[Rfam]
RNA sequence: GGGGACCUUCGGGGCCCUAUACCGCGGCGGGCUCCGGCCUGCCGACACUGCAAACGGAAGACAGGUA
Numbered sequence: 001g002g003g004g005a006c007c008u009u010c011g012g013g014g015c016c017c018u019a020u021a022c023c024g025c026g027g028c029g030g031g032c033u034c035c036g037g038c039c040u041g042c043c044g045a046c047a048c049u050g051c052a053a054a055c056g057g058a059a060g061a062c063a064g065g066u067a
Stems, first nucleotide, its partner, number of pairs: 001018004006014003026043007
RNA: L2-Alphaproteobacteria ribosomal protein leader
Organism: Jannaschia rubra